[Rfam]
RNA sequence: AAAUGGAUAGGCGAUGGAGUUCGCCAUAACCGCCGUUUGGCUAAUGACUCCUACCAGUCU
Numbered sequence: 001a002a003a004u005g006g007a008u009a010g011g012c013g014a015u016g017g018a019g020u021u022c023g024c025c026a027u028a029a030c031c032g033c034c035g036u037u038u039g040g041c042u043a044a045u046g047a048c049u050c051c052u053a054c055c056a057g058u059c060u
Base pairs, nucleotide, nucleotide: 010025011024012023013022016051017050018049019048020047021046032041033040034039
Fluoride riboswitch aptamer (crcB RNA motif): a 60-nucleotide RNA sequence from Effusibacillus dendaii. Taxonomically the source falls in Effusibacillus (Bacteria, Bacillati, Bacillota, Alicyclobacillaceae). The match comes from Rfam's covariance-model search (63 bits).